[Rfam]
Shown here is a 48-nucleotide RNA sequence from Lophotis ruficrista, a member of the family "Guanidine-II riboswitch aptamer (mini-ykkC)".

RNA sequence: CUUUGGGGACGGCCCAAACGUUGCUUUAUUUCUUUGGGGACGGCCCCA
Numbered sequence: 001c002u003u004u005g006g007g008g009a010c011g012g013c014c015c016a017a018a019c020g021u022u023g024c025u026u027u028a029u030u031u032c033u034u035u036g037g038g039g040a041c042g043g044c045c046c047c048a
Stems, first nucleotide, its partner, number of pairs: 001020001003018002006015003035048005

The source organism's lineage runs through Eukaryota, Sauropsida, Coelurosauria, Otidimorphae and Lophotis. It scores 32 bits against the family's covariance model. Gene Ontology term of the family: regulation of gene expression.